[Rfam]
RNA sequence: UAUUGCCCUGCGCCAAGAUGAGAAAAAGUAUUUUUAGGGCAAUAGCGGGGGACCCACUUAACGACGUGCAACGUCUUGGGGUGAAGUCUUGCGUAGAAGCAGGCCGGCUCAAUCUCAGGAGCCGAAUCCGACAGCUAACUUCGUAGGCGCAACUUGAGAGGAAUG
Numbered sequence: 001u002a003u004u005g006c007c008c009u010g011c012g013c014c015a016a017g018a019u020g021a022g023a024a025a026a027a028g029u030a031u032u033u034u035u036a037g038g039g040c041a042a043u044a045g046c047g048g049g050g051g052a053c054c055c056a057c058u059u060a061a062c063g064a065c066g067u068g069c070a071a072c073g074u075c076u077u078g079g080g081g082u083g084a085a086g087u088c089u090u091g092c093g094u095a096g097a098a099g100c101a102g103g104c105c106g107g108c109u110c111a112a113u114c115u116c117a118g119g120a121g122c123c124g125a126a127u128c129c130g131a132c133a134g135c136u137a138a139c140u141u142c143g144u145a146g147g148c149g150c151a152a153c154u155u156g157a158g159a160g161g162a163a164u165g
Stems, first nucleotide, its partner, number of pairs: 001044010045144006055078002079129003088103004106123004
RNA: c-di-AMP riboswitch aptamer (ydaO/yuaA leader)